[Rfam]
Source information: A member of the RNA family "c-di-AMP riboswitch aptamer (ydaO/yuaA leader)" from Paenibacillus sp. GSMTC-2017, 150 nucleotides long. A search with the family's covariance model found it, with a score of 93 bits.

RNA sequence: AUAAACGAAACGCUGAGUCAUCCGUAAGAUGAGCGGGGGAACCAUCGCGACGAACAGUCGUCGCAGGGGUGAAUCCAUAAUUAGUAUGGUAGGGAAAUCUCGAUUCCCGAAUCCGACAGCUAACUCCGUAAGCGUUAUUCGAGAGAUGAA
Numbered sequence: 001a002u003a004a005a006c007g008a009a010a011c012g013c014u015g016a017g018u019c020a021u022c023c024g025u026a027a028g029a030u031g032a033g034c035g036g037g038g039g040a041a042c043c044a045u046c047g048c049g050a051c052g053a054a055c056a057g058u059c060g061u062c063g064c065a066g067g068g069g070u071g072a073a074u075c076c077a078u079a080a081u082u083a084g085u086a087u088g089g090u091a092g093g094g095a096a097a098u099c100u101c102g103a104u105u106c107c108c109g110a111a112u113c114c115g116a117c118a119g120c121u122a123a124c125u126c127c128g129u130a131a132g133c134g135u136u137a138u139u140c141g142a143g144a145g146a147u148g149a150a
Stems, first nucleotide, its partner, number of pairs: 011134004018032005033129006043066001067114003075089004092108004